[Rfam]
RNA: mir-15 microRNA precursor family
RNA sequence: UGUAGUGGUGUUUUAGCAGCACGUAAAUACUGGAGUAUAAUUAUUCAUGUACUCUCCAGUAUUACUCUGCUGCUCUAGCAAUGCUGCU
Dot-bracket structure: .(((((........(((((((.(..((((((((((..................))))))))))..).)))))))........))))).